[Rfam]
RNA sequence: GGUUAGCCCCGAUUGCAGCGGCAUCCUUUUGCGGAACGAAGUGCAGCAAAAGAUACAGCGGAAAGCGGGACAGAAU
Numbered sequence: 001g002g003u004u005a006g007c008c009c010c011g012a013u014u015g016c017a018g019c020g021g022c023a024u025c026c027u028u029u030u031g032c033g034g035a036a037c038g039a040a041g042u043g044c045a046g047c048a049a050a051a052g053a054u055a056c057a058g059c060g061g062a063a064a065g066c067g068g069g070a071c072a073g074a075a076u
Stems, first nucleotide, its partner, number of pairs: 009068003013064002018059002023054003029049004034044001036042001
This 76-nucleotide RNA sequence belongs to the Rfam family "Flavo-1 RNA". Pairs were carried over by alignment from the consensus structure, which is taken from published work. Rfam 15.1 lists 7,497 matches to the family in 411 species.